[Rfam]
RNA sequence: GUUUUGUGAUGAUCCCCAUGCGUGUCAACUGAUCCCAGACUCCCUGCAGUGCUCGGUGUCUGAUGAGUGUUUUGCUUAUCUGUGCACUUGAGCCUGUUGGACUCUGUGAACAUGAUCUUGACUUUAGUCUGAAAAC
Numbered sequence: 001g002u003u004u005u006g007u008g009a010u011g012a013u014c015c016c017c018a019u020g021c022g023u024g025u026c027a028a029c030u031g032a033u034c035c036c037a038g039a040c041u042c043c044c045u046g047c048a049g050u051g052c053u054c055g056g057u058g059u060c061u062g063a064u065g066a067g068u069g070u071u072u073u074g075c076u077u078a079u080c081u082g083u084g085c086a087c088u089u090g091a092g093c094c095u096g097u098u099g100g101a102c103u104c105u106g107u108g109a110a111c112a113u114g115a116u117c118u119u120g121a122c123u124u125u126a127g128u129c130u131g132a133a134a135a136c
Stems, first nucleotide, its partner, number of pairs: 001136004043100002046097004

Rfam assigns this 136-nucleotide sequence from Sinocyclocheilus anshuiensis to the family "Small nucleolar RNA SNORD10". It scores 79 bits against the family's covariance model. Taxonomically the source falls in Sinocyclocheilus (Eukaryota, Eumetazoa, Teleostomi, Teleostei). Gene Ontology terms of the family: RNA processing and nucleolus.